[Rfam]
RNA sequence: ACAAUCUCAGGCGAUGGAGUUCGCCCGACGCCUGCCGCCCGGCAGAGCUGAUGACUCCUACUACUUC
Numbered sequence: 001a002c003a004a005u006c007u008c009a010g011g012c013g014a015u016g017g018a019g020u021u022c023g024c025c026c027g028a029c030g031c032c033u034g035c036c037g038c039c040c041g042g043c044a045g046a047g048c049u050g051a052u053g054a055c056u057c058c059u060a061c062u063a064c065u066u067c
Base pairs, nucleotide, nucleotide: 010025011024012023013022016058017057018056019055020054021053037048038047040045

Rfam assigns this 67-nucleotide RNA sequence from Granulicella sp. 5B5 to the family "Fluoride riboswitch aptamer (crcB RNA motif)". The match comes from Rfam's covariance-model search (41 bits).